[Rfam]
RNA sequence: CCUUUGGAGAGUUAUAUCAAACGAAAGUAGCUUAGGCAAAAUCGGACUUGUAGAAGAAGGAA
Dot-bracket structure: (((((...(((((........(((.....((....))....))))))))......)))))..
RAGATH-18 RNA: a 62-nucleotide sequence. From the family's description: Actinobacteria, Firmicutes, Fusobacteria, Thermotogae (1 example). Rfam classes the family as a small RNA. Rfam's curators put it in the seed alignment.